[Rfam]
Shown here is a 58-nucleotide RNA sequence from Modestobacter versicolor, a member of the family "msiK RNA".

RNA sequence: CGGGGGCACCACCCACUCGGAUCGUCCGGCACGUUCCUGCCGGUAGGAGGAGCACACG
Numbered sequence: 001c002g003g004g005g006g007c008a009c010c011a012c013c014c015a016c017u018c019g020g021a022u023c024g025u026c027c028g029g030c031a032c033g034u035u036c037c038u039g040c041c042g043g044u045a046g047g048a049g050g051a052g053c054a055c056a057c058g
Stems, first nucleotide, its partner, number of pairs: 009050002012047002015044001026043006